[Rfam]
RNA sequence: CUCCAGGGCAACCGUGGCUUUAGAUUGUUACUGUGCGGACGUGGGUUUGGUAACAGUCUACAGCCAUGGUUGGUCCGGCGGA
Numbered sequence: 001c002u003c004c005a006g007g008g009c010a011a012c013c014g015u016g017g018c019u020u021u022a023g024a025u026u027g028u029u030a031c032u033g034u035g036c037g038g039a040c041g042u043g044g045g046u047u048u049g050g051u052a053a054c055a056g057u058c059u060a061c062a063g064c065c066a067u068g069g070u071u072g073g074u075c076c077g078g079c080g081g082a
Base pairs, nucleotide, nucleotide: 012069013068015066016065017064018063023058024057025056026055027054028053029052030051031050032049
mir-132 microRNA precursor family: an 82-nucleotide RNA from Anolis carolinensis. For this family Rfam cites "The developmental miRNA profiles of zebrafish as determined by small RNA cloning" (Chen et al., Genes Dev, 2005). Taxonomically the source falls in Anolis (Eukaryota, Metazoa, Gnathostomata, Teleostomi). Pairs were carried over by alignment from the consensus structure, which was predicted with RNAalifold.